[Rfam]
RNA sequence: CGUCUGUCCCUACUUCGGGGGUGCCAAACCCCAAGCACAAGCUGCCAUCCAUAUGUGAUGGAAUGGGUGAUCCCUCAGCUACCGAGGUAGGAGAAGAAUCCCAGGGAAACACCGUAGCCUGGCUAUUACGGCCAGUGGGUGCUACGGGCACAUUAACUGGG
Number, nucleotide and partner (000 for none) at each position: 001c000002g000003u097004c096005u000006g000007u000008c000009c091010c090011u089012a088013c087014u086015u085016c000017g000018g000019g000020g000021g000022u000023g000024c000025c000026a000027a000028a000029c000030c000031c000032c000033a000034a000035g000036c000037a000038c000039a000040a080041g079042c078043u077044g000045c000046c000047a000048u000049c000050c000051a000052u000053a000054u000055g000056u000057g000058a000059u000060g000061g000062a000063a000064u000065g000066g000067g000068u000069g000070a000071u000072c000073c000074c000075u000076c000077a043078g042079c041080u040081a000082c000083c000084g000085a015086g014087g013088u012089a011090g010091g009092a000093g000094a000095a000096g004097a003098a000099u000100c161101c160102c159103a158104g157105g000106g000107a000108a000109a000110c000111a000112c147113c146114g145115u144116a143117g142118c141119c000120u000121g000122g000123c000124u000125a000126u000127u000128a000129c000130g000131g000132c000133c000134a000135g000136u000137g000138g000139g000140u000141g118142c117143u116144a115145c114146g113147g112148g000149c000150a000151c000152a000153u000154u000155a000156a000157c104158u103159g102160g101161g100
The family of this 161-nucleotide RNA is "Hairpin ribozyme 1 from viruses-like metatranscriptomes". Pairs were carried over by alignment from the consensus structure, which is taken from published work. Its family is annotated with RNA nuclease activity in the Gene Ontology.